[Rfam]
RNA sequence: GUAAGGGUGACCGAGCGUGGGGAGGAAGCGUGGAGCGAAACUGCGAGCCGAUGGACAAGAACCGGAUAUGAGGCGCUGCCGAGCAGGGCGAGUGGGCGAGAAACCGCGAAGCUCUCGUGGCCAAGGUGAGGUGGCGUAAAUCCUGCGGUUGUGCAGUGAAGGAGUGCGUUC
Numbered sequence: 001g002u003a004a005g006g007g008u009g010a011c012c013g014a015g016c017g018u019g020g021g022g023a024g025g026a027a028g029c030g031u032g033g034a035g036c037g038a039a040a041c042u043g044c045g046a047g048c049c050g051a052u053g054g055a056c057a058a059g060a061a062c063c064g065g066a067u068a069u070g071a072g073g074c075g076c077u078g079c080c081g082a083g084c085a086g087g088g089c090g091a092g093u094g095g096g097c098g099a100g101a102a103a104c105c106g107c108g109a110a111g112c113u114c115u116c117g118u119g120g121c122c123a124a125g126g127u128g129a130g131g132u133g134g135c136g137u138a139a140a141u142c143c144u145g146c147g148g149u150u151g152u153g154c155a156g157u158g159a160a161g162g163a164g165u166g167c168g169u170u171c
Base pairs, nucleotide, nucleotide: 001016002015005012006011028171030169031168032167036162040157041156042155043154044153045152046150047149048148049147050146062145064143065142066141067140073137074136075135077133079131080130084128085127086114087113088112089111092107093106094105095104
Shown here is a 171-nucleotide sequence from Azotobacter vinelandii, a member of the family "Group II catalytic intron D1-D4-3".
The family has 406 seed sequences and 4,274 matches in Rfam 15.1.
Pairs were carried over by alignment from the consensus structure.
From the family's description: Group II introns are found in rRNA, tRNA and mRNA of organelles in fungi, plants and protists, and also in mRNA in bacteria.
Taxonomically the source falls in Azotobacter vinelandii (Bacteria, Pseudomonadati, Pseudomonadales, Pseudomonadaceae).